[Rfam]
RNA: mir-8813 microRNA precursor family
RNA sequence: UGGUGAGGCUCCCCGGCUGUCACUCUGUCCCAGGCCCAUCCUGGCCCCGGGCACAGGUUGAGUCGCAGUAGAGUCUGUGGGGUCCUGACCC
Numbered sequence: 001u002g003g004u005g006a007g008g009c010u011c012c013c014c015g016g017c018u019g020u021c022a023c024u025c026u027g028u029c030c031c032a033g034g035c036c037c038a039u040c041c042u043g044g045c046c047c048c049g050g051g052c053a054c055a056g057g058u059u060g061a062g063u064c065g066c067a068g069u070a071g072a073g074u075c076u077g078u079g080g081g082g083u084c085c086u087g088a089c090c091c
Stems, first nucleotide, its partner, number of pairs: 001088001002084002004080001006076006016069005022063004027058003034052004